mir-970 microRNA precursor family: a 75-nucleotide sequence from Agrilus planipennis.
Its family is annotated with RISC complex and miRNA-mediated post-transcriptional gene silencing in the Gene Ontology.
Pairs were carried over by alignment from the consensus structure, which was predicted with RNAalifold.
It scores 60 bits against the family's covariance model.
RNA sequence: GUGUGAUAGCCCAGCGUGUGCCGUACUGAUAGUGUUUUUUUUCUAGCUAUCAUAAGACACACGCGGCUGUUAUAC
Numbered sequence: 001g002u003g004u005g006a007u008a009g010c011c012c013a014g015c016g017u018g019u020g021c022c023g024u025a026c027u028g029a030u031a032g033u034g035u036u037u038u039u040u041u042u043c044u045a046g047c048u049a050u051c052a053u054a055a056g057a058c059a060c061a062c063g064c065g066g067c068u069g070u071u072a073u074a075c
Base pairs, nucleotide, nucleotide: 001075002074003073004072005071006070008068009067010066011065014064015063016062019059020058022056027052028051029050030049031048